[Rfam]
RNA: TPP riboswitch aptamer (THI element)
RNA sequence: CAGUGUCCGCACGGGAGCCGCUGCAGCGGCUGAGAGGGAGCAUGCAGCUCCGACCGUGGAACCUGAUCCGGGUUAUGCCGGCGCAGGGAGCGUGAUUCGUGUGAUG
Numbered sequence: 001c002a003g004u005g006u007c008c009g010c011a012c013g014g015g016a017g018c019c020g021c022u023g024c025a026g027c028g029g030c031u032g033a034g035a036g037g038g039a040g041c042a043u044g045c046a047g048c049u050c051c052g053a054c055c056g057u058g059g060a061a062c063c064u065g066a067u068c069c070g071g072g073u074u075a076u077g078c079c080g081g082c083g084c085a086g087g088g089a090g091c092g093u094g095a096u097u098c099g100u101g102u103g104a105u106g
Stems, first nucleotide, its partner, number of pairs: 006094001008092003011057004017030005037051005062087004068081004